[Rfam]
RNA sequence: GUGUUCCGACCUGAGACCUCUGGGUUCUGAGCUGUGACAUUGCUUCUGAGCUGGGAUGUCUGGGGUCUUGGUUCAGAGUCA
Numbered sequence: 001g002u003g004u005u006c007c008g009a010c011c012u013g014a015g016a017c018c019u020c021u022g023g024g025u026u027c028u029g030a031g032c033u034g035u036g037a038c039a040u041u042g043c044u045u046c047u048g049a050g051c052u053g054g055g056a057u058g059u060c061u062g063g064g065g066u067c068u069u070g071g072u073u074c075a076g077a078g079u080c081a
Stems, first nucleotide, its partner, number of pairs: 003079004008074001011071010022060002026056003030052004

This 81-nucleotide RNA from Pteropus alecto belongs to the Rfam family "mir-769 microRNA precursor family". The source organism's lineage runs through Eukaryota, Opisthokonta, Bilateria, Pteropodidae and Pteropus. Rfam 15.1 lists 126 matches to the family in 109 species.